[Rfam]
Background
Shown here is a 266-nucleotide RNA sequence from Torulaspora delbrueckii, a member of the family "Small nucleolar RNA snR191". It scores 190 bits against the family's covariance model. Lineage of the source: Eukaryota > Ascomycota > Saccharomycotina > Saccharomycetales > Torulaspora.
Nucleotides: 266
Stems, first nucleotide, its partner, number of pairs: 003081005019068010092184006101137006111127006140172005148164007186260004191255004202246005209238003214228005
Number, partner (000 for none) and nucleotide at each position: 001000c002000a003081c004080c005079a006078a007077a008000a009000c010000u011000c012000u013000u014000u015000g016000u017000c018000a019068g020067g021066g022065u023064g024063c025062u026061c027060u028059c029000c030000g031000c032000c033000g034000c035000g036000a037000a038000u039000c040000a041000a042000a043000u044000g045000a046000g047000u048000u049000u050000g051000c052000a053000a054000a055000c056000u057000a058000c059028g060027a061026g062025a063024g064023u065022g066021u067020c068019u069000g070000u071000u072000a073000a074000a075000g076000u077007u078006u079005u080004g081003g082000a083000a084000g085000a086000u087000c088000g089000a090000u091000a092184u093183u094182g095181u096180c097179u098000a099000c100000c101137u102136u103135a104134u105133c106132c107000a108000u109000c110000a111127u112126c113125u114124u115123c116122c117000g118000u119000u120000c121000u122116g123115g124114a125113a126112g127111a128000a129000u130000u131000a132106g133105g134104a135103u136102a137101a138000u139000a140172g141171a142170a143169g144168g145000a146000c147000a148164a149163c150162c151161u152160c153159c154158g155000u156000u157000u158154u159153g160152g161151a162150g163149g164148u165000a166000u167000a168144c169143c170142u171141u172140c173000g174000c175000a176000c177000c178000u179097a180096g181095a182094c183093a184092a185000c186260g187259a188258g189257g190000a191255c192254c193253u194252u195000c196000c197000a198000g199000a200000g201000u202246u203245g204244a205243g206242c207000u208000u209238u210237g211236u212000u213000a214228g215227u216226g217225a218224a219000g220000a221000u222000u223000a224218u225217u226216c227215a228214c229000a230000u231000a232000c233000c234000a235000u236211a237210c238209a239000u240000u241000u242206g243205c244204u245203c246202g247000u248000a249000g250000u251000a252194a253193a254192g255191g256000a257189c258188u259187u260186c261000a262000c263000a264000u265000u266000c
The literature on the family includes a 2003 paper in RNA by Badis et al., "A snoRNA that guides the two most conserved pseudouridine modifications within rRNA confers a growth advantage in yeast".